[Rfam]
RNA: c-di-AMP riboswitch aptamer (ydaO/yuaA leader)
Organism: Georgenia yuyongxinii
RNA sequence: ACCCGGGGUCGUACAAACCCGCGGCAGGGACGGGGGAACCAGUGUUCGCGGCCCGCAAGGGCCUUGGGGUGAAGUGCGGCCACGACGGCGCACCGGGCGAUCUCCUGCCCGAACCCGACAGCUCACCCCGGAGGAACUGGAGAGUCGAUGA
Numbered sequence: 001a002c003c004c005g006g007g008g009u010c011g012u013a014c015a016a017a018c019c020c021g022c023g024g025c026a027g028g029g030a031c032g033g034g035g036g037a038a039c040c041a042g043u044g045u046u047c048g049c050g051g052c053c054c055g056c057a058a059g060g061g062c063c064u065u066g067g068g069g070u071g072a073a074g075u076g077c078g079g080c081c082a083c084g085a086c087g088g089c090g091c092a093c094c095g096g097g098c099g100a101u102c103u104c105c106u107g108c109c110c111g112a113a114c115c116c117g118a119c120a121g122c123u124c125a126c127c128c129c130g131g132a133g134g135a136a137c138u139g140g141a142g143a144g145u146c147g148a149u150g151a
Stems, first nucleotide, its partner, number of pairs: 002029003031130005040066002067116003075092004095110004